RNA sequence: AAAUUACACAGUAACUGACGACAAUAAUGGAACUAACCAUAUGGGAGCUGUGUAUGUAUCGCCGGUCGUCUGGGCAAAAGAU
Numbered sequence: 001a002a003a004u005u006a007c008a009c010a011g012u013a014a015c016u017g018a019c020g021a022c023a024a025u026a027a028u029g030g031a032a033c034u035a036a037c038c039a040u041a042u043g044g045g046a047g048c049u050g051u052g053u054a055u056g057u058a059u060c061g062c063c064g065g066u067c068g069u070c071u072g073g074g075c076a077a078a079a080g081a082u
Stems, first nucleotide, its partner, number of pairs: 005054008015044002017070005027040004059077001061075003
ZMP/ZTP riboswitch aptamer (pfl RNA motif): an 82-nucleotide RNA from Niallia nealsonii. The organism belongs to Niallia, within Bacteria.